[Rfam]
RNA sequence: AAGCAUAUGAUGAAAGCAACUCGGAUUCCUCUUCAGGACAUCAUUUGGGUGAUGCGGGUUCGAGCUUCUGAUGCU
Numbered sequence: 001a002a003g004c005a006u007a008u009g010a011u012g013a014a015a016g017c018a019a020c021u022c023g024g025a026u027u028c029c030u031c032u033u034c035a036g037g038a039c040a041u042c043a044u045u046u047g048g049g050u051g052a053u054g055c056g057g058g059u060u061c062g063a064g065c066u067u068c069u070g071a072u073g074c075u
Stems, first nucleotide, its partner, number of pairs: 002075004